Rfam assigns this 169-nucleotide RNA from Pseudoalteromonas sp. NBT06-2 to the family "Group II catalytic intron D1-D4-3". The match comes from Rfam's covariance-model search (59 bits). Pairs were carried over by alignment from the consensus structure.
Nucleotides: 169
Base pairs, nucleotide, nucleotide: 001016002015003014004013006011029169030168032166041156042155043154044153045152046151049147050146051145064144065143066142073136074135075134077132078131079130080129081128082127083126084112085111086110087109090105091104092103093102
Number, partner (000 for none) and nucleotide at each position: 001016u002015u003014a004013u005000g006011g007000c008000u009000a010000a011006c012000g013004a014003u015002a016001a017000g018000g019000u020000c021000u022000g023000a024000a025000g026000g027000a028000a029169g030168c031000c032166a033000u034000a035000g036000g037000a038000a039000g040000a041156u042155a043154a044153a045152u046151g047000u048000a049147c050146a051145c052000a053000a054000c055000u056000a057000a058000c059000c060000g061000u062000a063000a064144c065143c066142u067000g068000u069000u070000u071000c072000g073136g074135c075134g076000g077132c078131a079130u080129u081128g082127g083126u084112g085111g086110g087109u088000a089000a090105g091104c092103g093102u094000u095000c096000a097000a098000a099000a100000u101000a102093g103092c104091g105090c106000g107000a108000a109087g110086c111085c112084c113000a114000a115000u116000a117000c118000u119000u120000a121000g122000u123000c124000a125000g126083a127082c128081c129080a130079a131078u132077g133000c134075u135074g136073u137000g138000c139000u140000u141000g142066a143065g144064g145051g146050u147049g148000g149000c150000a151046u152045a153044u154043u155042u156041a157000u158000c159000a160000g161000g162000g163000a164000g165000c166032u167000a168030g169029u